This 80-nucleotide sequence from Cuscuta europaea belongs to the Rfam family "Small nucleolar RNA Z102/R77". Rfam classes the family as a C/D-box small nucleolar RNA.

RNA sequence: GAAUGAAAUGAUGAGAAGAUAUACCAUUGAUGGCAAAAUAUGAUAGCCUUUUAUCAUGUAUUAGCUCUAGCUGAUCAUUC
Number, nucleotide and partner (000 for none) at each position: 001g000002a079003a078004u077005g076006a000007a000008a000009u000010g000011a000012u000013g000014a000015g000016a000017a000018g000019a000020u000021a000022u000023a000024c000025c000026a000027u000028u000029g050030a000031u000032g048033g047034c046035a000036a000037a000038a000039u000040a000041u000042g000043a000044u000045a000046g034047c033048c032049u000050u029051u000052u000053a000054u000055c000056a000057u000058g000059u000060a000061u000062u000063a000064g000065c000066u000067c000068u000069a000070g000071c000072u000073g000074a000075u000076c005077a004078u003079u002080c000
Taxonomically the source falls in Cuscuta subgen. Cuscuta (Eukaryota, Viridiplantae, Gunneridae, Pentapetalae).